[Rfam]
RNA sequence: AAGCUGUGAUGAUAUUUGCGUUAAUUGUGGCAGUUGGGUCCGCCACUUCUGUCUGAUCUUCAGACGAAGCUAUAGCGCAUCUGAGCUU
Numbered sequence: 001a002a003g004c005u006g007u008g009a010u011g012a013u014a015u016u017u018g019c020g021u022u023a024a025u026u027g028u029g030g031c032a033g034u035u036g037g038g039u040c041c042g043c044c045a046c047u048u049c050u051g052u053c054u055g056a057u058c059u060u061c062a063g064a065c066g067a068a069g070c071u072a073u074a075g076c077g078c079a080u081c082u083g084a085g086c087u088u
Stems, first nucleotide, its partner, number of pairs: 001088004